[Rfam]
RNA sequence: AGGCCUAGAGAGAGAGGCAGGGUCUGAUCCACAGCCUCCGUGACAACUGUUGAUCAGUCGUUGCCUGUCUCUUUCUCUCCA
Numbered sequence: 001a002g003g004c005c006u007a008g009a010g011a012g013a014g015a016g017g018c019a020g021g022g023u024c025u026g027a028u029c030c031a032c033a034g035c036c037u038c039c040g041u042g043a044c045a046a047c048u049g050u051u052g053a054u055c056a057g058u059c060g061u062u063g064c065c066u067g068u069c070u071c072u073u074u075c076u077c078u079c080c081a
Stems, first nucleotide, its partner, number of pairs: 008073006015066006022059001024057006032049003
Rfam assigns this 81-nucleotide sequence from Cnephaeus nilssonii to the family "mir-574 microRNA precursor family". Clan: mir-574 microRNA precursor clan. Its family is annotated with RISC complex and miRNA-mediated post-transcriptional gene silencing in the Gene Ontology.